[Rfam]
RNA sequence: UCUCGUUAUAAAGCAAUUCCCGAUAGGAUUCACGUCUGAACGUGAAGAUGCCUUGUAACCGCAACUACAAACUAUUUGAAAGUUUCAAUAGAAUAUGGGGGAAUUAGAAAAUG
Number, nucleotide and partner (000 for none) at each position: 001u000002c000003u000004c000005g000006u000007u000008a000009u000010a000011a000012a000013g000014c000015a000016a000017u103018u102019c101020c100021c099022g000023a000024u000025a053026g052027g051028a000029u046030u045031c044032a043033c042034g000035u000036c000037u000038g000039a000040a000041c000042g033043u032044g031045a030046a029047g000048a000049u000050g000051c027052c026053u025054u000055g000056u000057a000058a000059c098060c097061g000062c000063a000064a000065c000066u000067a000068c000069a000070a000071a000072c000073u000074a000075u000076u000077u000078g000079a000080a000081a000082g000083u000084u000085u000086c000087a000088a000089u000090a000091g000092a000093a000094u000095a000096u000097g060098g059099g021100g020101g019102a018103a017104u000105u000106a000107g000108a000109a000110a000111a000112u000113g000
RNA: SAM-III riboswitch aptamer (SMK box)